The family of this 99-nucleotide sequence from Streptococcus ovuberis is "PreQ1-II (pre queuosine) riboswitch aptamer". Its family is annotated with queuosine biosynthetic process in the Gene Ontology. The literature on the family includes a 2007 paper in Nucleic Acids Res by Weinberg et al., "Identification of 22 candidate structured RNAs in bacteria using the CMfinder comparative genomics pipeline". Taxonomically the source falls in Streptococcus (Bacteria, Bacillati, Lactobacillales, Streptococcaceae). The match comes from Rfam's covariance-model search (82 bits). About the family: preQ1-II riboswitch was first reported for Weinberg et al. 2007 it was recognised in Streptococcaceae and Lactococcus families in 5' untranslated regions of genes of a membrane protein classified as COG4708 or DUF988.
RNA sequence: UAUGCUAUACUAGGAACGUUGUUUUAGAACAACCCUUGACACUUCCUACCUUUUGUCAAGCAUAUUACAAGCGGUAAAGCCGCCAAAGGAGUUUUUAUA
Number, nucleotide and partner (000 for none) at each position: 001u000002a000003u000004g000005c000006u000007a000008u000009a000010c000011u000012a000013g000014g000015a000016a000017c000018g033019u032020u031021g030022u029023u000024u000025u000026a000027g000028a000029a022030c021031a020032a019033c018034c000035c060036u059037u058038g057039a056040c055041a054042c000043u000044u000045c000046c000047u091048a000049c089050c088051u087052u086053u000054u041055g040056u039057c038058a037059a036060g035061c000062a000063u000064a000065u000066u000067a000068c000069a000070a000071g083072c082073g081074g080075u000076a000077a000078a000079g000080c074081c073082g072083c071084c000085a000086a052087a051088g050089g049090a000091g047092u000093u000094u000095u000096u000097a000098u000099a000